[Rfam]
RNA: Saccharopolyspora sRNA 350
Organism: Saccharothrix sp. CB00851
RNA sequence: UUGACGGUGAACUCCCACUCGCCCUGCGGGCCCGCGAGGACGUCGCCGCCGAAGUGCUCGCCGUCGGCCAGCGUGCCGAGCACGGUCUGGGAGCCGUACUCGCCCUGGCCGAUCCGGUUCACCUUGCCGUGCGCGAUCAGGUAGACCGCGUCCUGCGGGCGGCCCUCCUCCACGAUCACCGCGCCGGGCUCGAACUCGCGCUGCUCGAACCGGUCGGCCAGCGCGUUGAGCGCCUCGACGUCCUCGAAACCGCGCAGCAGCGCCAGUUCGGUCAGUUCCUCCGGGAUGACCCGGACGUCCGCGCCGAUGUUGGUGAAGGUCAGCCGCCCGUCGCCGACUUCGUAGCUGAGCCUGCGGUUGACCCGGAAGGCGCCGCCCUUCGCCUCCACCCAGGGCAGGAUCUUGAGCAGCCACCGCGAGGUGAUGCCCUGCAUCUGGGGAACGGACUUGGUCGUGGUCGCCAGGUUCCGGGCUGCCGCCGUGCUCAGGCUCAACCGAGUCUGCUCGG
Numbered sequence: 001u002u003g004a005c006g007g008u009g010a011a012c013u014c015c016c017a018c019u020c021g022c023c024c025u026g027c028g029g030g031c032c033c034g035c036g037a038g039g040a041c042g043u044c045g046c047c048g049c050c051g052a053a054g055u056g057c058u059c060g061c062c063g064u065c066g067g068c069c070a071g072c073g074u075g076c077c078g079a080g081c082a083c084g085g086u087c088u089g090g091g092a093g094c095c096g097u098a099c100u101c102g103c104c105c106u107g108g109c110c111g112a113u114c115c116g117g118u119u120c121a122c123c124u125u126g127c128c129g130u131g132c133g134c135g136a137u138c139a140g141g142u143a144g145a146c147c148g149c150g151u152c153c154u155g156c157g158g159g160c161g162g163c164c165c166u167c168c169u170c171c172a173c174g175a176u177c178a179c180c181g182c183g184c185c186g187g188g189c190u191c192g193a194a195c196u197c198g199c200g201c202u203g204c205u206c207g208a209a210c211c212g213g214u215c216g217g218c219c220a221g222c223g224c225g226u227u228g229a230g231c232g233c234c235u236c237g238a239c240g241u242c243c244u245c246g247a248a249a250c251c252g253c254g255c256a257g258c259a260g261c262g263c264c265a266g267u268u269c270g271g272u273c274a275g276u277u278c279c280u281c282c283g284g285g286a287u288g289a290c291c292c293g294g295a296c297g298u299c300c301g302c303g304c305c306g307a308u309g310u311u312g313g314u315g316a317a318g319g320u321c322a323g324c325c326g327c328c329c330g331u332c333g334c335c336g337a338c339u340u341c342g343u344a345g346c347u348g349a350g351c352c353u354g355c356g357g358u359u360g361a362c363c364c365g366g367a368a369g370g371c372g373c374c375g376c377c378c379u380u381c382g383c384c385u386c387c388a389c390c391c392a393g394g395g396c397a398g399g400a401u402c403u404u405g406a407g408c409a410g411c412c413a414c415c416g417c418g419a420g421g422u423g424a425u426g427c428c429c430u431g432c433a434u435c436u437g438g439g440g441a442a443c444g445g446a447c448u449u450g451g452u453c454g455u456g457g458u459c460g461c462c463a464g465g466u467u468c469c470g471g472g473c474u475g476c477c478g479c480c481g482u483g484c485u486c487a488g489g490c491u492c493a494a495c496c497g498a499g500u501c502u503g504c505u506c507g508g
Stems, first nucleotide, its partner, number of pairs: 006390004011385001014382001020326002024323003027319001031315001035313001037311002040308001045305001047303003051299002054233002057230004062225003065111004075103001077102004082097005117222003122217002127212001129210002131206001133204003140197001143196002149192002156187001158185003162177001165174001235295002240290003244286002252280001254278001256277003261270002329342002354376004362370002391431007400422002403418001407415001437476001439474002443470004447465006477507002480503002484499003488495001